[Rfam]
RNA sequence: AUUAAAAAUAUCAUUGAGUGCAGCGUUGAUGAAGGAUCUCCAUCUUACCAUUUUUAGCUGUCGAUUGAUUCAUCUGCGCUGCACCCAAUCAUGUUUUUU
Numbered sequence: 001a002u003u004a005a006a007a008a009u010a011u012c013a014u015u016g017a018g019u020g021c022a023g024c025g026u027u028g029a030u031g032a033a034g035g036a037u038c039u040c041c042a043u044c045u046u047a048c049c050a051u052u053u054u055u056a057g058c059u060g061u062c063g064a065u066u067g068a069u070u071c072a073u074c075u076g077c078g079c080u081g082c083a084c085c086c087a088a089u090c091a092u093g094u095u096u097u098u099u
Base pairs, nucleotide, nucleotide: 006096007095008094009093010092011091013089014088015087016086018084019083020082021081022080023079024078025077026076028074030072031071032070
Record summary: The family of this 99-nucleotide RNA sequence from Coffea arabica is "MIR397 microRNA precursor family". A reference for the family is Mica et al. (2009), "High throughput approaches reveal splicing of primary microRNA transcripts and tissue specific expression of mature microRNAs in Vitis vinifera", BMC Genomics.